[Rfam]
RNA sequence: AACAAGUACUAGGGGAGACUGUAUAGAUAGUCUGAGAGUAGGAUGUUAUCCUUUACCCUCAUAACCUGAUUUAGUUAAUGCUAACGUAGGGAUGUAAUUUGUUAAACUU
Numbered sequence: 001a002a003c004a005a006g007u008a009c010u011a012g013g014g015g016a017g018a019c020u021g022u023a024u025a026g027a028u029a030g031u032c033u034g035a036g037a038g039u040a041g042g043a044u045g046u047u048a049u050c051c052u053u054u055a056c057c058c059u060c061a062u063a064a065c066c067u068g069a070u071u072u073a074g075u076u077a078a079u080g081c082u083a084a085c086g087u088a089g090g091g092a093u094g095u096a097a098u099u100u101g102u103u104a105a106a107c108u109u
Stems, first nucleotide, its partner, number of pairs: 007096003011059004016053001017032005040052004065090004071084004
Shown here is a 109-nucleotide RNA sequence from Clostridium acetireducens, a member of the family "TPP riboswitch aptamer (THI element)". Lineage of the source: Bacteria > Eubacteriales > Clostridiaceae > Clostridium > Clostridium acetireducens. The family's consensus secondary structure is taken from published work.